[Rfam]
RNA sequence: GCCUUAUAAAGAUGUAUGAACGCAAGACAGUUUGGCAUCUCCCUUUAAGGCCUUGUUCAAUUAGAAACUUCAAUGACAAAUCUUAUUGUGUGGCAUUAGUCGAAAUGAGAUGAAUUGAGGCGGAAUAGGUUAACGGUUAGACCUUGAAUUGAAAAAUUCUAAAAUUGAUCUCAAAGAUUGUUAUUACUUUUGAGUAACUGUUUC
Dot-bracket structure: ((((((.(.((((((.((((((.....).)))))))))))...).))))))................(((((((......(((((((....((......))..)))))))...)))))))......[[[[[.(((((((]]]]].(((((....))))).....)....(((((((...........))))))).))))))...
RNA: IS605-orfB-I RNA